The family of this 153-nucleotide RNA sequence from Pseudorhodobacter turbinis is "Ruegeria cis2 sRNA". The family's consensus secondary structure was predicted with RNAfold. For this family Rfam cites "Experimental Identification of Small Non-Coding RNAs in the Model Marine Bacterium Ruegeria pomeroyi DSS-3" (Rivers et al., Front Microbiol, 2016). The match comes from Rfam's covariance-model search (65 bits). It is annotated as a small RNA.
RNA sequence: AUUGCUGUAGUGGGGGUGGUAAUUCAAAAAGGUAAAGCCGCGCCCUUGGUCAAUUGUAUGAAACAACGGGUUCCAAUCAAAAAAAGCAAGUUUUGACGUGGGCAUCGUAUUUGCAACAAACAUCUUGCCACUCGCGAUCAUAUUGGCGCGUUG
Numbered sequence: 001a002u003u004g005c006u007g008u009a010g011u012g013g014g015g016g017u018g019g020u021a022a023u024u025c026a027a028a029a030a031g032g033u034a035a036a037g038c039c040g041c042g043c044c045c046u047u048g049g050u051c052a053a054u055u056g057u058a059u060g061a062a063a064c065a066a067c068g069g070g071u072u073c074c075a076a077u078c079a080a081a082a083a084a085a086g087c088a089a090g091u092u093u094u095g096a097c098g099u100g101g102g103c104a105u106c107g108u109a110u111u112u113g114c115a116a117c118a119a120a121c122a123u124c125u126u127g128c129c130a131c132u133c134g135c136g137a138u139c140a141u142a143u144u145g146g147c148g149c150g151u152u153g
Stems, first nucleotide, its partner, number of pairs: 002035003006032001008030001011027001013025003037057002040054001042051001044049001064153005071081002086147002089144003093140001095139001099134002102129001103127002107123002110119002